[Rfam]
RNA sequence: GCAUAUAUGAUGUGAACGAAACAGUAUGAGAAUCUGUGAUACUGUAAACGCUUUCUGAUGUG
Dot-bracket structure: .((((......(..(.(....((((((...........)))))).....).).)....))))